[Rfam]
RNA sequence: AGAGGUCACAAGUUUGGAGCCAUAACAGAAGCACUCACAGUGUAGCCCUAACAGAUUUCAACAAAUCUUCAAAUUCUGUU
Numbered sequence: 001a002g003a004g005g006u007c008a009c010a011a012g013u014u015u016g017g018a019g020c021c022a023u024a025a026c027a028g029a030a031g032c033a034c035u036c037a038c039a040g041u042g043u044a045g046c047c048c049u050a051a052c053a054g055a056u057u058u059c060a061a062c063a064a065a066u067c068u069u070c071a072a073a074u075u076c077u078g079u080u
Stems, first nucleotide, its partner, number of pairs: 016048002019046002024080007031043003053068006
RNA: Mammalian CPEB3 ribozyme
Organism: Alligator mississippiensis